[Rfam]
RNA sequence: GGAUUGAUGAUGAUGUCCACAUAAACAUUCUGUGGGAAAGCUGAACAAAAUGAGUGAAAACUCACUACCAUCUCACUCAUCGGACUGCACAUUCC
Numbered sequence: 001g002g003a004u005u006g007a008u009g010a011u012g013a014u015g016u017c018c019a020c021a022u023a024a025a026c027a028u029u030c031u032g033u034g035g036g037a038a039a040g041c042u043g044a045a046c047a048a049a050a051u052g053a054g055u056g057a058a059a060a061c062u063c064a065c066u067a068c069c070a071u072c073u074c075a076c077u078c079a080u081c082g083g084a085c086u087g088c089a090c091a092u093u094c095c
Stems, first nucleotide, its partner, number of pairs: 001095003005091001026056005033047002
Rfam assigns this 95-nucleotide RNA sequence from Chrysochloris asiatica to the family "Small nucleolar RNA SNORD116".
By type it is a C/D-box small nucleolar RNA.